[Rfam]
RNA sequence: AUCUACAAUCCGUUCUGCAGGUUUGCAUCUCAGCUUGGCGUCCCUUUGCUGUGCAAACCCAUGCAAAACGGACUGUGGUG
Numbered sequence: 001a002u003c004u005a006c007a008a009u010c011c012g013u014u015c016u017g018c019a020g021g022u023u024u025g026c027a028u029c030u031c032a033g034c035u036u037g038g039c040g041u042c043c044c045u046u047u048g049c050u051g052u053g054c055a056a057a058c059c060c061a062u063g064c065a066a067a068a069c070g071g072a073c074u075g076u077g078g079u080g
Stems, first nucleotide, its partner, number of pairs: 003078005009072006016065004020060002022057007032050003
Shown here is an 80-nucleotide RNA from Phrynocephalus forsythii, a member of the family "mir-19 microRNA precursor family". It scores 66 bits against the family's covariance model. For this family Rfam cites "Embryonic stem cell-specific MicroRNAs" (Houbaviy et al., Dev Cell, 2003).